Rfam assigns this 65-nucleotide RNA from Brassica rapa to the family "Small nucleolar RNA U49".
The literature on the family includes a 2001 paper in RNA by Brown et al., "Multiple snoRNA gene clusters from Arabidopsis".
Gene Ontology terms of the family: RNA processing and nucleolus.
RNA sequence: GCCCGAUGAAGAAGAAUUCCCAAAAGAUAGGAAGUGCCGUAUGAUACUUUAAACGCAGCAGGCGA
Numbered sequence: 001g002c003c004c005g006a007u008g009a010a011g012a013a014g015a016a017u018u019c020c021c022a023a024a025a026g027a028u029a030g031g032a033a034g035u036g037c038c039g040u041a042u043g044a045u046a047c048u049u050u051a052a053a054c055g056c057a058g059c060a061g062g063c064g065a
Base pairs, nucleotide, nucleotide: 014059031050032049033048034047035046036045